[Rfam]
Nucleotides: 067
Stems, first nucleotide, its partner, number of pairs: 002064020023043008
Number, partner (000 for none) and nucleotide at each position: 001000c002064u003063g004062g005061g006060g007059a008058u009057u010056a011055g012054u013053a014052u015051g016050a017049a018048a019047a020046u021045u022000c023043g024042c025041a026040g027039g028038a029037a030036a031000u032000u033000u034000a035000u036030u037029u038028u039027c040026c041025u042024g043023c044000a045021a046020a047019u048018u049017u050016u051015c052014a053013u054012a055011c056010u057009a058008a059007u060006u061005c062004c063003u064002a065000g066000a067000a
Background
This 67-nucleotide RNA sequence from Solanum tuberosum belongs to the Rfam family "MIR8001 microRNA precursor family". The sequence is in the family's curated seed alignment. Pairs were carried over by alignment from the consensus structure, which was predicted with RNAalifold. The organism belongs to Solanum, within Eukaryota. Rfam links the family to the GO terms miRNA-mediated post-transcriptional gene silencing and RISC complex.